The family of this 58-nucleotide RNA sequence from Semnornis frantzii is "Small nucleolar RNA U2-19". The family has 29 seed sequences and 1,147 matches in Rfam 15.1. Gene Ontology terms of the family: nucleolus and RNA processing. Pairs were carried over by alignment from the consensus structure, which is taken from published work. The source organism's lineage runs through Eukaryota, Gnathostomata, Sarcopterygii, Neoaves and Semnornis.

RNA sequence: GAUCUGUGAUGAGAAUUAGCCAAAUCUGACCACCAGAAGAUAAAAUAAUCUUCCAGGU
Numbered sequence: 001g002a003u004c005u006g007u008g009a010u011g012a013g014a015a016u017u018a019g020c021c022a023a024a025u026c027u028g029a030c031c032a033c034c035a036g037a038a039g040a041u042a043a044a045a046u047a048a049u050c051u052u053c054c055a056g057g058u
Stems, first nucleotide, its partner, number of pairs: 032058003038051004